[Rfam]
A member of the RNA family "terC RNA" from Roseivivax isoporae, 56 nucleotides long. A search with the family's covariance model found it, with a score of 60 bits. NCBI's taxonomy places the organism under Bacteria, Pseudomonadati, Roseobacteraceae, Roseivivax, Roseivivax isoporae. The base pairs follow the family's consensus structure, which is taken from published work.
RNA sequence: ACGGCGGGCCGGGCCCCUCUGACGGCGGGUGAUCGCCGUGAUGUCGGACCGCAUCU
Numbered sequence: 001a002c003g004g005c006g007g008g009c010c011g012g013g014c015c016c017c018u019c020u021g022a023c024g025g026c027g028g029g030u031g032a033u034c035g036c037c038g039u040g041a042u043g044u045c046g047g048a049c050c051g052c053a054u055c056u
Base pairs, nucleotide, nucleotide: 006050007049009047010046011045012044022039023038024037025036026035027034028033